Overview
The record is a 127-nucleotide RNA sequence from Pavo cristatus, which matches "Small nucleolar RNA SNORA40" in Rfam. The snoRNA ACA 40 belongs to the H/ACA family of snoRNAs and guides the pseudouridylation of 28S rRNA subunit at position U4565. NB This family has a high threshold value to exclude a large number of closely related sequences that do not appear to have conserved H and ACA boxes, and may be pseudogenes. Gene Ontology terms of the family: nucleolus and RNA processing. By type it is an H/ACA-box small nucleolar RNA.
[Rfam]
RNA sequence: AGCACAUGUUCAGUUUUUGUCUGGUGCUGUAGACAAAAACCUGGAACCUGGUGCUUAGAAAAAAACCUUCUUUCGCAACCCACAGCCAGUGCAUGUAUUGGCUGUGUUACUUAUAUGAAGGGACAGU
Numbered sequence: 001a002g003c004a005c006a007u008g009u010u011c012a013g014u015u016u017u018u019g020u021c022u023g024g025u026g027c028u029g030u031a032g033a034c035a036a037a038a039a040c041c042u043g044g045a046a047c048c049u050g051g052u053g054c055u056u057a058g059a060a061a062a063a064a065a066c067c068u069u070c071u072u073u074c075g076c077a078a079c080c081c082a083c084a085g086c087c088a089g090u091g092c093a094u095g096u097a098u099u100g101g102c103u104g105u106g107u108u109a110c111u112u113a114u115a116u117g118a119a120g121g122g123a124c125a126g127u
Stems, first nucleotide, its partner, number of pairs: 001055005008047001010045001013040008025031001067122003071118002075114001081106010